Rfam assigns this 261-nucleotide RNA sequence from Cardinalis cardinalis to the family "Small Cajal body-specific RNA 7". The base pairs follow the family's consensus structure. The match comes from Rfam's covariance-model search (92 bits). Its family is annotated with RNA processing and nucleolus in the Gene Ontology.
RNA sequence: GAGAAGUGAUGACACAGAGACAGCUGGGUGUGUUUGGAUGGAGGGUGUGUGAGAAGGGGUGGGGGCUGUGUGUGCUGUGUGGGGGCUCUCCUGGGGGCACUGAUGGCAGUGCUGAGCCAGGAGUGCAUCUGAGGCGUGUUGGGCACCUCGGGGCCCCUCUGCAACACUGCCUGUGAUUAAAGCCCCAGAAAAGCCCACCAGGAGAGCCCCAGGCUGCCCAAAUGUCUCCAGGGUCACCAGUGAUCCUGUGCUCUGAUCUCA
Dot-bracket structure: ((((....................................................................................................................................(((((((..((....))..))....)))))..........................................................................................)))).